[Rfam]
RNA: Selenocysteine transfer RNA
Organism: Syntrophaceae bacterium
RNA sequence: GGAAGUGGACAGGUUCUGGUGGGCCUCCUGGACUUCAAAUCCAGUGACGGGCAGAAAUGUCCGUGGUGGGUUCGAUUCCCAUGCACUUCC
Numbered sequence: 001g002g003a004a005g006u007g008g009a010c011a012g013g014u015u016c017u018g019g020u021g022g023g024c025c026u027c028c029u030g031g032a033c034u035u036c037a038a039a040u041c042c043a044g045u046g047a048c049g050g051g052c053a054g055a056a057a058u059g060u061c062c063g064u065g066g067u068g069g070g071u072u073c074g075a076u077u078c079c080c081a082u083g084c085a086c087u088u089c090c
Base pairs, nucleotide, nucleotide: 001090002089003088004087005086006085007084009082011026012025013024014023015022016021028044029043030042031041032040047064048063049062050061051060067081068080069079070078